Rfam assigns this 112-nucleotide sequence from Dorcoceras hygrometricum to the family "Small nucleolar RNA snoR99". Lineage of the source: Eukaryota > Euphyllophyta > lamiids > Loxocarpinae > Dorcoceras. The family's consensus secondary structure was predicted with WAR. Gene Ontology terms of the family: RNA processing and nucleolus.
[Rfam]
RNA sequence: UUGCCCGAGGGAUAAAAAGAUCCCGGAAAUAAAAAAAUUAUCCAUCCAUCACUUUGCCUGCAAUUAUAUUGAAAAUUUUGUUUCUUGCUGGCCAUCAAGGUGUGGAAAAUUG
Numbered sequence: 001u002u003g004c005c006c007g008a009g010g011g012a013u014a015a016a017a018a019g020a021u022c023c024c025g026g027a028a029a030u031a032a033a034a035a036a037a038u039u040a041u042c043c044a045u046c047c048a049u050c051a052c053u054u055u056g057c058c059u060g061c062a063a064u065u066a067u068a069u070u071g072a073a074a075a076u077u078u079u080g081u082u083u084c085u086u087g088c089u090g091g092c093c094a095u096c097a098a099g100g101u102g103u104g105g106a107a108a109a110u111u112g
Base pairs, nucleotide, nucleotide: 041106042105043104044103045102056092057091058090060088061087062086063085